[Rfam]
RNA sequence: UGGGCUGGUCGAAAAACCCAGGUCCAACCAAAAGAACAGGCGGGGGAACUCCCC
Numbered sequence: 001u002g003g004g005c006u007g008g009u010c011g012a013a014a015a016a017c018c019c020a021g022g023u024c025c026a027a028c029c030a031a032a033a034g035a036a037c038a039g040g041c042g043g044g045g046g047a048a049c050u051c052c053c054c
Stems, first nucleotide, its partner, number of pairs: 001026006007018003
Shown here is a 54-nucleotide sequence, a member of the family "DUF3800-XI RNA". Rfam classes the family as a small RNA. About the family: Actinobacteria, Firmicutes, Proteobacteria, Spirochaetes (1 example). The family's consensus secondary structure is taken from published work.